This 103-nucleotide RNA from Stutzerimonas stutzeri belongs to the Rfam family "Guanidine-I riboswitch aptamer". It is one of the family's seed sequences. Its family is annotated with regulation of gene expression in the Gene Ontology. About the family: This family represents a conserved RNA structure found upstream of the ykkC and yxkD genes in Bacillus subtilis and related genes in other bacteria.

RNA sequence: UUCAAGGAGAACUAGGGUUCCGGCUCACAGGGAGUGGGCGCUGGUCCGAGAGUUCUCCGGUCCCAGGGACGGGACUACACGGAGGGAUAAAAGCCCGGGAGAC
Dot-bracket structure: ......((((((..((...(((((((((.....)))))).).)).))....)))))).((((((......)))))).(.[...(((.......))).)..]..